RNA sequence: GCCUUCUUAGCUCAGUCGGAAGAGCACCAGACUUGUAAUCUGGUUUUCACGGGGCUCGAGCCCCGUACAGGGUU
Numbered sequence: 001g002c003c004u005u006c007u008u009a010g011c012u013c014a015g016u017c018g019g020a021a022g023a024g025c026a027c028c029a030g031a032c033u034u035g036u037a038a039u040c041u042g043g044u045u046u047u048c049a050c051g052g053g054g055c056u057c058g059a060g061c062c063c064c065g066u067a068c069a070g071g072g073u074u
Stems, first nucleotide, its partner, number of pairs: 001073005007067001010025004027043005049066003053063002
Record summary:
The record is a 74-nucleotide sequence from Plectus sambesii, which matches "tRNA" in Rfam. It scores 47 bits against the family's covariance model. Gene Ontology term of the family: triplet codon-amino acid adaptor activity.